[Rfam]
RNA sequence: CAGCCCUGCCACGGGAGUCCGGCCCGGCCGGGCUGAGAGGCGGGCAGCCGGCCCGCGACCGUUCGCACCUGAUCCGGAUCAUGCCGGCGCAGGGAGGCCGUGACCUCCCUUC
Numbered sequence: 001c002a003g004c005c006c007u008g009c010c011a012c013g014g015g016a017g018u019c020c021g022g023c024c025c026g027g028c029c030g031g032g033c034u035g036a037g038a039g040g041c042g043g044g045c046a047g048c049c050g051g052c053c054c055g056c057g058a059c060c061g062u063u064c065g066c067a068c069c070u071g072a073u074c075c076g077g078a079u080c081a082u083g084c085c086g087g088c089g090c091a092g093g094g095a096g097g098c099c100g101u102g103a104c105c106u107c108c109c110u111u112c
Base pairs, nucleotide, nucleotide: 006100008098009097010096011062012061013060014059017033018032019031020030021029040056041055042054043053044052068093069092070091071090074087075086076085077084
RNA: TPP riboswitch aptamer (THI element)
Organism: Amycolatopsis arida